[Rfam]
RNA: Glycine riboswitch aptamer
RNA sequence: UUUUAAAAAUCGGGAGAGACUAAUAAUUUAGCACCGAAGGAGCAACCACCCCGGAAACUCUCAGGUAAACUGGACCGAUAAAAGCAU
Numbered sequence: 001u002u003u004u005a006a007a008a009a010u011c012g013g014g015a016g017a018g019a020c021u022a023a024u025a026a027u028u029u030a031g032c033a034c035c036g037a038a039g040g041a042g043c044a045a046c047c048a049c050c051c052c053g054g055a056a057a058c059u060c061u062c063a064g065g066u067a068a069a070c071u072g073g074a075c076c077g078a079u080a081a082a083a084g085c086a087u
Stems, first nucleotide, its partner, number of pairs: 009079005020031004033066003036062002040060003046054002
Dot-bracket structure: ........(((((......((((....)))).(((((..(((...((.....))...))))).)))........)))))........